[Rfam]
RNA sequence: GAAAGAUCGGAUGAUCCUGUCCGGUUGGGCAUGUCAUUUGCCCCAAUCAAA
Dot-bracket structure: ....((((((((......))))))))((((.........))))........
Numbered sequence: 001g002a003a004a005g006a007u008c009g010g011a012u013g014a015u016c017c018u019g020u021c022c023g024g025u026u027g028g029g030c031a032u033g034u035c036a037u038u039u040g041c042c043c044c045a046a047u048c049a050a051a
Stems, first nucleotide, its partner, number of pairs: 005026008027043004
Record summary:
Rfam assigns this 51-nucleotide RNA from Butyrivibrio sp. XB500-5 to the family "S4-Clostridia ribosomal protein leader". The match comes from Rfam's covariance-model search (39 bits). The organism belongs to Butyrivibrio, within Bacteria. By type it is a cis-regulatory leader. Its Rfam clan is "Ribosomal Protein S4 Leader clan".